The family of this 488-nucleotide RNA sequence from Spirosoma telluris is "Bacterial RNase P class A".
The match comes from Rfam's covariance-model search (246 bits).
RNA sequence: AAUAUGAGUUGGCUUAUCGCGUCUGAGCUAUCAGGCGAGGAAAGUCCGGGCAGCAUGGGGCACCCUACUUCCUAACGGGAAGGAGGAUGGUUGGGAACGACCAUUCGACAGCUAGUGUCACAGAAAAUAUACCGCCCGACAUUAAUGUAUAAUUGAUAAUGGAAAAUGAAUGAUGAAGGUUAUGCUGAUAUUAUUCAUUAACCAUUAUACAUUAUUCAUUAAAUCUGGUAAGGGUGAAAAGGUGGGGUAAGAGCCUACCGCCCGACGGGCGACCGGCGGGGCAGGAUAAACCUUAGGGGCUGAAAGACCAAAUAAGCGUUGGAUGUGGAGCGGCCCGUUCCCGUUCUGGAACAAUCCCAUCCGGGAACGAUCCAGAUGCCGACGCGGGUAGGUCGAACGAGGUGGCCGGUGACGUCCAUCCCAGAUAAAUGAUAGGCCAUUCUGCUUUUGCGGAAGGACAGAACCCGGCUUAUAGACUCGUAUUGGGC
Numbered sequence: 001a002a003u004a005u006g007a008g009u010u011g012g013c014u015u016a017u018c019g020c021g022u023c024u025g026a027g028c029u030a031u032c033a034g035g036c037g038a039g040g041a042a043a044g045u046c047c048g049g050g051c052a053g054c055a056u057g058g059g060g061c062a063c064c065c066u067a068c069u070u071c072c073u074a075a076c077g078g079g080a081a082g083g084a085g086g087a088u089g090g091u092u093g094g095g096a097a098c099g100a101c102c103a104u105u106c107g108a109c110a111g112c113u114a115g116u117g118u119c120a121c122a123g124a125a126a127a128u129a130u131a132c133c134g135c136c137c138g139a140c141a142u143u144a145a146u147g148u149a150u151a152a153u154u155g156a157u158a159a160u161g162g163a164a165a166a167u168g169a170a171u172g173a174u175g176a177a178g179g180u181u182a183u184g185c186u187g188a189u190a191u192u193a194u195u196c197a198u199u200a201a202c203c204a205u206u207a208u209a210c211a212u213u214a215u216u217c218a219u220u221a222a223a224u225c226u227g228g229u230a231a232g233g234g235u236g237a238a239a240a241g242g243u244g245g246g247g248u249a250a251g252a253g254c255c256u257a258c259c260g261c262c263c264g265a266c267g268g269g270c271g272a273c274c275g276g277c278g279g280g281g282c283a284g285g286a287u288a289a290a291c292c293u294u295a296g297g298g299g300c301u302g303a304a305a306g307a308c309c310a311a312a313u314a315a316g317c318g319u320u321g322g323a324u325g326u327g328g329a330g331c332g333g334c335c336c337g338u339u340c341c342c343g344u345u346c347u348g349g350a351a352c353a354a355u356c357c358c359a360u361c362c363g364g365g366a367a368c369g370a371u372c373c374a375g376a377u378g379c380c381g382a383c384g385c386g387g388g389u390a391g392g393u394c395g396a397a398c399g400a401g402g403u404g405g406c407c408g409g410u411g412a413c414g415u416c417c418a419u420c421c422c423a424g425a426u427a428a429a430u431g432a433u434a435g436g437c438c439a440u441u442c443u444g445c446u447u448u449u450g451c452g453g454a455a456g457g458a459c460a461g462a463a464c465c466c467g468g469c470u471u472a473u474a475g476a477c478u479c480g481u482a483u484u485g486g487g488c
Stems, first nucleotide, its partner, number of pairs: 001484010011473001012437007020037007042471003046468005051302004063298005068082005083109001085106009110293002115291002117287003132233002134229003138225002142221001241259006260282001261280004266275003306394004316385006401420005407414002
The family's RNA type in Rfam is ribozyme.